A member of the RNA family "Bacterial RNase P class A" from Robertkochia marina, 299 nucleotides long.
Taxonomically the source falls in Robertkochia (Bacteria, Pseudomonadati, Flavobacteriales, Flavobacteriaceae).
It is annotated as a ribozyme.
A search with the family's covariance model found it, with a score of 189 bits.
The base pairs follow the family's consensus structure, which is taken from published work.
RNA sequence: GCAGGUCACCCUAUCGUUCUGACUUUUGUCAGGAAGGAAAGUCCGGACACCAUAGCGCGGCAUAGCGGUUAACGACCGUCCGUUGAAAAACGAGGACCAGUGCAACAGAAAGAAUGUACAGGUAAUGCUGUAGUGAAAUCAGGUAAACUCUAUGCGGUGAAACGCCAUGUAAACCGGCACUCGAGGAUUGCGCAUCCGACGUCGGAGGGUAGGCGGCUAGAUCUUGUUAGUAAUAGCAAGGCCAGAUAAAUGAUAGGGACCCCUAACGGGGCACAGAAUCCGGCUUAUGACCUGCUUUU
Numbered sequence: 001g002c003a004g005g006u007c008a009c010c011c012u013a014u015c016g017u018u019c020u021g022a023c024u025u026u027u028g029u030c031a032g033g034a035a036g037g038a039a040a041g042u043c044c045g046g047a048c049a050c051c052a053u054a055g056c057g058c059g060g061c062a063u064a065g066c067g068g069u070u071a072a073c074g075a076c077c078g079u080c081c082g083u084u085g086a087a088a089a090a091c092g093a094g095g096a097c098c099a100g101u102g103c104a105a106c107a108g109a110a111a112g113a114a115u116g117u118a119c120a121g122g123u124a125a126u127g128c129u130g131u132a133g134u135g136a137a138a139u140c141a142g143g144u145a146a147a148c149u150c151u152a153u154g155c156g157g158u159g160a161a162a163c164g165c166c167a168u169g170u171a172a173a174c175c176g177g178c179a180c181u182c183g184a185g186g187a188u189u190g191c192g193c194a195u196c197c198g199a200c201g202u203c204g205g206a207g208g209g210u211a212g213g214c215g216g217c218u219a220g221a222u223c224u225u226g227u228u229a230g231u232a233a234u235a236g237c238a239a240g241g242c243c244a245g246a247u248a249a250a251u252g253a254u255a256g257g258g259a260c261c262c263c264u265a266a267c268g269g270g271g272c273a274c275a276g277a278a279u280c281c282g283g284c285u286u287a288u289g290a291c292c293u294g295c296u297u298u299u
Stems, first nucleotide, its partner, number of pairs: 001295008009258007017034007039286003043283005048159004055193004060155005065079005080094001081092004095150002100148002102144002117132005163215004174205005185197004222241008